[Rfam]
RNA sequence: AUCUAAGGCAAACGAACGUCUCGUAUAUCCUCAAUAAUAUGGUUUGAGGGUUUCUACAAGGAGCCAAAGAAUCCUAACUACGAGUAUAGGUUGCGUGUAU
Numbered sequence: 001a002u003c004u005a006a007g008g009c010a011a012a013c014g015a016a017c018g019u020c021u022c023g024u025a026u027a028u029c030c031u032c033a034a035u036a037a038u039a040u041g042g043u044u045u046g047a048g049g050g051u052u053u054c055u056a057c058a059a060g061g062a063g064c065c066a067a068a069g070a071a072u073c074c075u076a077a078c079u080a081c082g083a084g085u086a087u088a089g090g091u092u093g094c095g096u097g098u099a100u
Stems, first nucleotide, its partner, number of pairs: 020084006029049006059075004
Background
Purine riboswitch aptamer: a 100-nucleotide sequence from Paenibacillus antri. The family's consensus secondary structure is taken from published work.